A member of the RNA family "Plastid-rps18 3UTR RNA" from Hibiscus syriacus, 57 nucleotides long. It scores 69 bits against the family's covariance model. The base pairs follow the family's consensus structure, which was predicted with LocARNA.
RNA sequence: UGCAAGUAUUUUACUAUUAAGAAGCAAUUGUUUCAUGUACAAAUUGUGUAUCAAUCU
Numbered sequence: 001u002g003c004a005a006g007u008a009u010u011u012u013a014c015u016a017u018u019a020a021g022a023a024g025c026a027a028u029u030g031u032u033u034c035a036u037g038u039a040c041a042a043a044u045u046g047u048g049u050a051u052c053a054a055u056c057u
Base pairs, nucleotide, nucleotide: 018037019036021034022033023032024031025030

Plastid rps18 is a non-coding RNA (ncRNA) present in plastids. It was identified as a short stem-loop motif in the 3 prime untranslate region (3UTR) of rps18 gene. Rfam 15.1 lists 1,462 matches to the family in 409 species.